[Rfam]
RNA: skipping-rope RNA
Nucleotides: 070
Stems, first nucleotide, its partner, number of pairs: 001070005008063001011028005019055004030040001045062005
Number, partner (000 for none) and nucleotide at each position: 001070u002069u003068a004067a005066u006000u007000u008063g009000a010000g011028g012027a013026u014025a015024g016000a017000a018000a019055g020054u021053c022052a023000g024015c025014u026013a027012u028011c029000a030040c031000c032000c033000u034000a035000g036000u037000u038000a039000g040030g041000a042000g043000a044000u045062a046061c047060a048059g049058g050000a051000g052022u053021g054020g055019c056000g057000a058049c059048c060047u061046g062045u063008c064000u065000u066005a067004u068003u069002a070001a